[Rfam]
RNA: Streptococcus sRNA SpF59 (ldcC RNA)
RNA sequence: GGACCACUUCCGCACAGGAGUCGAGGCCAUACGGACAGCCGGGUCCACUGCCGA
Numbered sequence: 001g002g003a004c005c006a007c008u009u010c011c012g013c014a015c016a017g018g019a020g021u022c023g024a025g026g027c028c029a030u031a032c033g034g035a036c037a038g039c040c041g042g043g044u045c046c047a048c049u050g051c052c053g054a
Base pairs, nucleotide, nucleotide: 001046002045003044004043005042006021007020008019009018010017
Dot-bracket structure: ((((((((((......)))))....................)))))........